[Rfam]
Annotation: TPP riboswitch aptamer (THI element): a 90-nucleotide RNA sequence from Ligilactobacillus apodemi. The base pairs follow the family's consensus structure, which is taken from published work. The organism belongs to Ligilactobacillus apodemi, within Bacteria.
RNA sequence: UUAAACGAGCUGGGGUGCCAUUUGGCUGAGAAAUACCCAUAUUCACCUGAUCUGGUUAAUACCAGCGGAGGGAGCUUGAACGGUCGACGU
Numbered sequence: 001u002u003a004a005a006c007g008a009g010c011u012g013g014g015g016u017g018c019c020a021u022u023u024g025g026c027u028g029a030g031a032a033a034u035a036c037c038c039a040u041a042u043u044c045a046c047c048u049g050a051u052c053u054g055g056u057u058a059a060u061a062c063c064a065g066c067g068g069a070g071g072g073a074g075c076u077u078g079a080a081c082g083g084u085c086g087a088c089g090u
Stems, first nucleotide, its partner, number of pairs: 006078005011039004016033001017026003046071003052065004